A member of the RNA family "R2 RNA element" from Drosophila persimilis, 196 nucleotides long. Rfam's curators write: This family represents the 3' UTR region of the R2 retrotransposable element. This family is known to interact with the R2-encoded reverse transcriptase in a reaction known as target primed reverse transcription (TPRT). The literature on the family includes a 2004 paper in RNA by Ruschak et al., "Secondary structure models of the 3' untranslated regions of diverse R2 RNAs". The family's RNA type in Rfam is cis-regulatory element. The base pairs follow the family's consensus structure, which is taken from published work.
[Rfam]
RNA sequence: AUGCCAUUGCUACAUCACGUACAAAAUUAAGUUGCUUUGAUUUACUUUUUUUUAAAUUAUCUUUAAAACUCUAUUCAAAUUUCAAAAGGAGGUUUUUAGUCCGUAGGCACGCUAAGCACUCGUGCUAUGCGUGAAUCGGGCAUGCCCUUCACAACGGUGUGAGGGGCAUCUUUCGAAGAUUUUCCUACCUUGUUUC
Number, nucleotide and partner (000 for none) at each position: 001a000002u000003g000004c000005c000006a000007u000008u000009g000010c000011u000012a000013c000014a000015u000016c000017a000018c000019g000020u000021a000022c000023a000024a000025a000026a000027u000028u000029a000030a000031g000032u000033u000034g000035c000036u000037u055038u054039g000040a000041u000042u000043u000044a000045c000046u000047u000048u000049u000050u000051u000052u000053u000054a038055a037056a000057u000058u000059a000060u000061c000062u000063u000064u000065a195066a000067a194068a193069c192070u000071c000072u000073a000074u000075u000076c000077a000078a000079a000080u000081u000082u000083c000084a000085a000086a191087a190088g189089g188090a000091g185092g184093u000094u000095u000096u000097u000098a000099g141100u140101c139102c138103g137104u000105a000106g000107g000108c133109a132110c131111g130112c129113u000114a000115a126116g125117c124118a123119c000120u000121c000122g000123u118124g117125c116126u115127a000128u000129g112130c111131g110132u109133g108134a000135a000136u000137c103138g102139g101140g100141c099142a000143u168144g167145c166146c165147c164148u163149u000150c000151a000152c000153a000154a000155c000156g000157g000158u000159g000160u000161g000162a000163g148164g147165g146166g145167c144168a143169u000170c000171u000172u000173u000174c000175g000176a000177a000178g000179a000180u000181u000182u000183u000184c092185c091186u000187a000188c089189c088190u087191u086192g069193u068194u067195u065196c000